[Rfam]
Rfam assigns this 91-nucleotide RNA from Medicago truncatula to the family "MIR5298 microRNA precursor family". It scores 73 bits against the family's covariance model. Its family is annotated with RISC complex and miRNA-mediated post-transcriptional gene silencing in the Gene Ontology.
RNA sequence: UUAGGUUUUCUUCAUAUUCUUCUGGAAUUUUUCGCAGAUUUUAGUUGUUGAAGGUUGAUGGAGAUGAUAUGAAGAUGAAGAAGAUGAAGAA
Numbered sequence: 001u002u003a004g005g006u007u008u009u010c011u012u013c014a015u016a017u018u019c020u021u022c023u024g025g026a027a028u029u030u031u032u033c034g035c036a037g038a039u040u041u042u043a044g045u046u047g048u049u050g051a052a053g054g055u056u057g058a059u060g061g062a063g064a065u066g067a068u069a070u071g072a073a074g075a076u077g078a079a080g081a082a083g084a085u086g087a088a089g090a091a
Stems, first nucleotide, its partner, number of pairs: 005085011017073003026056007